[Rfam]
RNA sequence: UUGCACCUGUCAAAUAGAAUGAGGUUCCACAAACUUUGGUUGGGGAUUUCAGUGGCGGUGCAUAGAAAAAGCUGUUUUCAGCAGCUGCCAGACAACCGUAGUGAUGGAUCCACAGGUGAAAGGUUCACUGUACCAUUUGUCUACUGAUUCCAUCUCAUAUGC
Numbered sequence: 001u002u003g004c005a006c007c008u009g010u011c012a013a014a015u016a017g018a019a020u021g022a023g024g025u026u027c028c029a030c031a032a033a034c035u036u037u038g039g040u041u042g043g044g045g046a047u048u049u050c051a052g053u054g055g056c057g058g059u060g061c062a063u064a065g066a067a068a069a070a071g072c073u074g075u076u077u078u079c080a081g082c083a084g085c086u087g088c089c090a091g092a093c094a095a096c097c098g099u100a101g102u103g104a105u106g107g108a109u110c111c112a113c114a115g116g117u118g119a120a121a122g123g124u125u126c127a128c129u130g131u132a133c134c135a136u137u138u139g140u141c142u143a144c145u146g147a148u149u150c151c152a153u154c155u156c157a158u159a160u161g162c
Base pairs, nucleotide, nucleotide: 002062003061004060005059006058014053015052020051021050022049023048024047025046026045027044028043031040101156103154104153105152106151107150108149119138120137121136122133
RNA: small nucleolar RNA snoR143
Organism: Dioscorea zingiberensis